[Rfam]
RNA sequence: UCCUUAUCAAGAGUAGUUGAGGGAUCGGCCCUAUGAAGCUCGGCAACCUGGAUAUUCAAUAUUUAUCCGAUGGUGCUAAUUCCAGCAGGUAAAGCCUGAAAGAUGAGAU
Number, nucleotide and partner (000 for none) at each position: 001u000002c000003c107004u106005u105006a104007u103008c102009a000010a000011g000012a000013g041014u000015a040016g039017u038018u000019g000020a000021g031022g030023g029024a000025u085026c000027g083028g082029c023030c022031c021032u000033a000034u000035g000036a000037a000038g017039c016040u015041c013042g077043g076044c075045a074046a000047c073048c072049u069050g068051g067052a066053u065054a064055u000056u000057c000058a000059a000060u000061a000062u000063u000064u054065a053066u052067c051068c050069g049070a000071u000072g048073g047074u045075g044076c043077u042078a000079a000080u000081u101082c028083c027084a000085g025086c098087a097088g096089g095090u094091a000092a000093a000094g090095c089096c088097u087098g086099a000100a000101a081102g008103a007104u006105g005106a004107g003108a000109u000
A member of the RNA family "SAM riboswitch aptamer (S box leader)" from Clostridium luticellarii, 109 nucleotides long. Rfam links the family to the GO term regulation of gene expression. Taxonomically the source falls in Clostridium (Bacteria, Bacillati, Clostridia, Clostridiaceae). Rfam describes the family as follows. The SAM riboswitch is found upstream of a number of genes which code for proteins involved in methionine or cysteine biosynthesis in Gram-positive bacteria. It scores 83 bits against the family's covariance model. For this family Rfam cites "The S box regulon: a new global transcription termination control system for methionine and cysteine biosynthesis genes in gram-positive bacteria" (Grundy and Henkin, Mol Microbiol, 1998).